[Rfam]
RNA sequence: CCAACGGCUCUUUUAAGAGCCACCCACUUUUUCUAAAAAAGGGCUG
Numbered sequence: 001c002c003a004a005c006g007g008c009u010c011u012u013u014u015a016a017g018a019g020c021c022a023c024c025c026a027c028u029u030u031u032u033c034u035a036a037a038a039a040a041g042g043g044c045u046g
Base pairs, nucleotide, nucleotide: 006021007020008019009018010017011016
Histone 3' UTR stem-loop: a 46-nucleotide RNA sequence from Scytalopus superciliaris. By type it is a cis-regulatory element. The organism belongs to Scytalopus, within Eukaryota.